RNA sequence: GUCAUUCACUAGGGGCGCUUUUAUGAAGCUGAGAGAAGAAGUCAUUCUUCAACCCUUGAACCUGAUUUGGUUAAUACCAGCGUAGGAAAGUGAACUGGACUACUU
Numbered sequence: 001g002u003c004a005u006u007c008a009c010u011a012g013g014g015g016c017g018c019u020u021u022u023a024u025g026a027a028g029c030u031g032a033g034a035g036a037a038g039a040a041g042u043c044a045u046u047c048u049u050c051a052a053c054c055c056u057u058g059a060a061c062c063u064g065a066u067u068u069g070g071u072u073a074a075u076a077c078c079a080g081c082g083u084a085g086g087a088a089a090g091u092g093a094a095c096u097g098g099a100c101u102a103c104u105u
Stems, first nucleotide, its partner, number of pairs: 006093005011056004017029005036049005061086004067080004
Dot-bracket structure: .....(((((((((..(((((...)))))......(((((....)))))...))))....((((..((((......))))..))))..)))))............
The record is a 105-nucleotide RNA sequence from Bacillus sp. V59.32b, which matches "TPP riboswitch aptamer (THI element)" in Rfam.